[Rfam]
RNA: Small nucleolar RNA Z161/Z228
Organism: Ricinus communis
RNA sequence: UCGUCAAAUGAGGAAUUUGGAUAUUACUUCUCACGACGGUCGUCUGAGAUACUAUGCUAGUGUUGAAGUUGACAUAAUCCAAUGCUUCUGAUGAUU
Number, nucleotide and partner (000 for none) at each position: 001u094002c093003g000004u000005c000006a000007a000008a000009u000010g000011a000012g000013g000014a000015a000016u000017u000018u000019g000020g000021a000022u000023a000024u000025u000026a000027c000028u000029u000030c000031u000032c000033a000034c000035g000036a000037c000038g000039g000040u000041c000042g000043u000044c000045u000046g000047a000048g000049a000050u062051a061052c060053u059054a058055u000056g000057c000058u054059a053060g052061u051062g050063u000064u000065g000066a000067a000068g000069u000070u000071g000072a000073c000074a000075u000076a000077a000078u000079c000080c000081a000082a000083u000084g000085c000086u000087u000088c000089u000090g000091a000092u000093g002094a001095u000096u000